RNA sequence: CGAACCCGCGCGGGAGAGUCCCCGGUCAUCCGGGGCGCCGAAGGAGCAAGAUCCUCCCUUGAAUCUCUCAGGCCCCGUUACCGCGCAGGCGAG
Numbered sequence: 001c002g003a004a005c006c007c008g009c010g011c012g013g014g015a016g017a018g019u020c021c022c023c024g025g026u027c028a029u030c031c032g033g034g035g036c037g038c039c040g041a042a043g044g045a046g047c048a049a050g051a052u053c054c055u056c057c058c059u060u061g062a063a064u065c066u067c068u069c070a071g072g073c074c075c076c077g078u079u080a081c082c083g084c085g086c087a088g089g090c091g092a093g
Stems, first nucleotide, its partner, number of pairs: 006088001008086006020035004037073003040069002044067003050060002

Glycine riboswitch aptamer: a 93-nucleotide RNA sequence from Streptomyces cacaoi. It scores 72 bits against the family's covariance model. Rfam links the family to the GO term glycine biosynthetic process.